[Rfam]
RNA sequence: CAGAAAUUUGCUCUUUUAGAAUUUGUCCAGAAGGUUUCCUUUAAAAGGAAGCCAAC
Numbered sequence: 001c002a003g004a005a006a007u008u009u010g011c012u013c014u015u016u017u018a019g020a021a022u023u024u025g026u027c028c029a030g031a032a033g034g035u036u037u038c039c040u041u042u043a044a045a046a047g048g049a050a051g052c053c054a055a056c
Stems, first nucleotide, its partner, number of pairs: 033053008
This 56-nucleotide RNA sequence from Sinocyclocheilus grahami belongs to the Rfam family "U7 small nuclear RNA". The source organism's lineage runs through Eukaryota, Otomorpha, Cyprinoidei, Cyprininae and Sinocyclocheilus. Pairs were carried over by alignment from the consensus structure, which was predicted with PFOLD. On this family, see Marz et al., Genomics Proteomics Bioinformatics 2007: "U7 snRNAs: a computational survey".